[Rfam]
RNA sequence: CAGGUUGCGAUGAUUGUAAAAGUAAUUCCUCGAACUGAGAUGCUAAUGGCAUGACAGACUCCAAUUACACCCAUAGAAUAUGAGCAUCC
Numbered sequence: 001c002a003g004g005u006u007g008c009g010a011u012g013a014u015u016g017u018a019a020a021a022g023u024a025a026u027u028c029c030u031c032g033a034a035c036u037g038a039g040a041u042g043c044u045a046a047u048g049g050c051a052u053g054a055c056a057g058a059c060u061c062c063a064a065u066u067a068c069a070c071c072c073a074u075a076g077a078a079u080a081u082g083a084g085c086a087u088c089c
Stems, first nucleotide, its partner, number of pairs: 003089002006086002
A member of the RNA family "Small nucleolar RNA snoR8a" from Kingdonia uniflora, 89 nucleotides long. The family has 7 seed sequences and 956 matches in Rfam 15.1. The base pairs follow the family's consensus structure, which was predicted with WAR. A search with the family's covariance model found it, with a score of 87 bits. The source organism's lineage runs through Eukaryota, Viridiplantae, Streptophytina, Tracheophyta and Kingdonia.